Annotation:
The record is an 81-nucleotide sequence from a Solirubrobacterales bacterium, which matches "ZMP/ZTP riboswitch aptamer (pfl RNA motif)" in Rfam.
[Rfam]
RNA sequence: CCCGGCUGUCGCAACUGGCGCGAGAAGGUGGAGCACCACCGGGGAACGGCAGCCAAGCGGCCGCGCGCCUGGGCACCAACC
Numbered sequence: 001c002c003c004g005g006c007u008g009u010c011g012c013a014a015c016u017g018g019c020g021c022g023a024g025a026a027g028g029u030g031g032a033g034c035a036c037c038a039c040c041g042g043g044g045a046a047c048g049g050c051a052g053c054c055a056a057g058c059g060g061c062c063g064c065g066c067g068c069c070u071g072g073g074c075a076c077c078a079a080c081c
Stems, first nucleotide, its partner, number of pairs: 004054008015043002017069005028039004060074003
Dot-bracket structure: ...((((((((...(([[[[[......((((....))))..))...)))))))).....(((..]]]]]..))).......

The source organism's lineage runs through Bacteria, Bacillati, Actinomycetota, Thermoleophilia and Solirubrobacterales.